[Rfam]
RNA: c-di-AMP riboswitch aptamer (ydaO/yuaA leader)
RNA sequence: AAUAAAUAUACGCUUAAUCCUUAACAGGAGCGGGGGACCCGAGUAAGUGCGCAUGCACUGGGGGUGAAUCCUUGUAGUUUUGAGGUAGGACAGCUCUUCGUCCGAAUCCGACAGCUAACCUCGCUUGCGCUGGAGAGACUCAAC
Numbered sequence: 001a002a003u004a005a006a007u008a009u010a011c012g013c014u015u016a017a018u019c020c021u022u023a024a025c026a027g028g029a030g031c032g033g034g035g036g037a038c039c040c041g042a043g044u045a046a047g048u049g050c051g052c053a054u055g056c057a058c059u060g061g062g063g064g065u066g067a068a069u070c071c072u073u074g075u076a077g078u079u080u081u082g083a084g085g086u087a088g089g090a091c092a093g094c095u096c097u098u099c100g101u102c103c104g105a106a107u108c109c110g111a112c113a114g115c116u117a118a119c120c121u122c123g124c125u126u127g128c129g130c131u132g133g134a135g136a137g138a139c140u141c142a143a144c
Base pairs, nucleotide, nucleotide: 011129012128013127018029019028020027030124031123032122033121034120035119040061062109063108064107070085071084072083073082088103089102090101091100